[Rfam]
This 49-nucleotide RNA belongs to the Rfam family "L31-Actinobacteria ribosomal protein leader". The family's consensus secondary structure is taken from published work. The family is grouped with related families in Rfam's "Ribosomal Protein L31 Leader clan". By type it is a cis-regulatory leader.
RNA sequence: CUGGUUCCGGUUCACGUCCCGCUUCACGCGGCGGGACGACCCGGCGACC
Number, nucleotide and partner (000 for none) at each position: 001c000002u000003g049004g048005u047006u000007c044008c043009g042010g041011u000012u000013c000014a000015c038016g037017u036018c035019c034020c033021g032022c031023u030024u000025c000026a000027c000028g000029c000030g023031g022032c021033g020034g019035g018036a017037c016038g015039a000040c000041c010042c009043g008044g007045c000046g000047a005048c004049c003